[Rfam]
RNA sequence: ACACACGAAAGGAGGUGAUCCUGAGUUGAGUUGUACCAGGACGCGUGAGGUGGCAGUCAGCUAGCCGCCCCGCCCGCGAACGGGACCGGAAGGUCCUGCCCGGCAGGUCCGGGGCGGCGGGCUAAUCUCCGACAGUCACCCAGCCCGCGAGCUCACCGGUCAGUCCCCGGUGCCUGGUCGAGGGCGCCCGAAGCGGCUCAGUGCCGUCGCGGGUGUUCCGGCAGGAAGCAGCUCGCGGGCUGCCUGUU
Dot-bracket structure: .............(((..(.................................)..)))((((.((.((((.((.................................))...)))).)).)))).................(((((((((((((..((((..........................................................))))........)))))))))))))......
Numbered sequence: 001a002c003a004c005a006c007g008a009a010a011g012g013a014g015g016u017g018a019u020c021c022u023g024a025g026u027u028g029a030g031u032u033g034u035a036c037c038a039g040g041a042c043g044c045g046u047g048a049g050g051u052g053g054c055a056g057u058c059a060g061c062u063a064g065c066c067g068c069c070c071c072g073c074c075c076g077c078g079a080a081c082g083g084g085a086c087c088g089g090a091a092g093g094u095c096c097u098g099c100c101c102g103g104c105a106g107g108u109c110c111g112g113g114g115c116g117g118c119g120g121g122c123u124a125a126u127c128u129c130c131g132a133c134a135g136u137c138a139c140c141c142a143g144c145c146c147g148c149g150a151g152c153u154c155a156c157c158g159g160u161c162a163g164u165c166c167c168c169g170g171u172g173c174c175u176g177g178u179c180g181a182g183g184g185c186g187c188c189c190g191a192a193g194c195g196g197c198u199c200a201g202u203g204c205c206g207u208c209g210c211g212g213g214u215g216u217u218c219c220g221g222c223a224g225g226a227a228g229c230a231g232c233u234c235g236c237g238g239g240c241u242g243c244c245u246g247u248u
Stems, first nucleotide, its partner, number of pairs: 014058003019053001059123004064118002067115004072108002141242013156221004
Record summary
This 248-nucleotide RNA sequence from Catenulispora acidiphila belongs to the Rfam family "Actinobacteria sRNA Ms_IGR-5". By type it is a small RNA. Pairs were carried over by alignment from the consensus structure. The organism belongs to Catenulispora acidiphila, within Bacteria.